The record is a 127-nucleotide sequence from Salvelinus namaycush, which matches "Small nucleolar RNA SNORA65" in Rfam.
NCBI's taxonomy places the organism under Eukaryota, Bilateria, Craniata, Teleostomi, Salvelinus.
About the family: U65 belongs to the H/ACA class of snoRNAs which are thought to guide the sites of modification of uridines to pseudouridines.
The match comes from Rfam's covariance-model search (97 bits).
For this family Rfam cites "RNomics: an experimental approach that identifies 201 candidates for novel, small, non-messenger RNAs in mouse" (Huttenhofer et al., EMBO J, 2001).
[Rfam]
RNA sequence: CCCGCCACUAUGCUGGUCUAUUUUAGUGACUGAGUAUAAUCCAGUGGAGGCUCAGAUAGACCCAGCUCUAGGAAGCAGGGCUGCCUAAACAAAUGGGCAACUCUGUGCCGAAAGGCCUGGAACAAAC
Numbered sequence: 001c002c003c004g005c006c007a008c009u010a011u012g013c014u015g016g017u018c019u020a021u022u023u024u025a026g027u028g029a030c031u032g033a034g035u036a037u038a039a040u041c042c043a044g045u046g047g048a049g050g051c052u053c054a055g056a057u058a059g060a061c062c063c064a065g066c067u068c069u070a071g072g073a074a075g076c077a078g079g080g081c082u083g084c085c086u087a088a089a090c091a092a093a094u095g096g097g098c099a100a101c102u103c104u105g106u107g108c109c110g111a112a113a114g115g116c117c118u119g120g121a122a123c124a125a126a127c
Stems, first nucleotide, its partner, number of pairs: 005047005018034002022029002062120004066115002069112001071109002076105005084097003
Its family is annotated with RNA processing and nucleolus in the Gene Ontology. Pairs were carried over by alignment from the consensus structure, which was predicted with RNAalifold. Rfam classes the family as an H/ACA-box small nucleolar RNA.